[Rfam]
RNA sequence: UUAUCAGUCAGGCUCCUGGCUAGAAUCCAGGUACCAUCUGGUACCUGAUCUAGCCAAAGCCUGACUGUAAG
Numbered sequence: 001u002u003a004u005c006a007g008u009c010a011g012g013c014u015c016c017u018g019g020c021u022a023g024a025a026u027c028c029a030g031g032u033a034c035c036a037u038c039u040g041g042u043a044c045c046u047g048a049u050c051u052a053g054c055c056a057a058a059g060c061c062u063g064a065c066u067g068u069a070a071g
Stems, first nucleotide, its partner, number of pairs: 007065003011061004017056008027041005
The record is a 71-nucleotide sequence from Cricetulus griseus, which matches "mir-344 microRNA precursor family" in Rfam. For this family Rfam cites "Mammalian microRNAs: experimental evaluation of novel and previously annotated genes" (Chiang et al., Genes Dev, 2010).